[Rfam]
RNA sequence: GCGCUCGUAGCUCAAUUGGAUAGAGCGACAGACUUCGGAUCUGUAGGUUAUGGGUUCGACUCCUAUCGGGCGCA
Numbered sequence: 001g002c003g004c005u006c007g008u009a010g011c012u013c014a015a016u017u018g019g020a021u022a023g024a025g026c027g028a029c030a031g032a033c034u035u036c037g038g039a040u041c042u043g044u045a046g047g048u049u050a051u052g053g054g055u056u057c058g059a060c061u062c063c064u065a066u067c068g069g070g071c072g073c074a
Base pairs, nucleotide, nucleotide: 001073002072003071004070005069006068007067010026011025012024013023028044029043030042031041032040050066051065052064053063054062
A member of the RNA family "tRNA", 74 nucleotides long. By type it is a transfer RNA.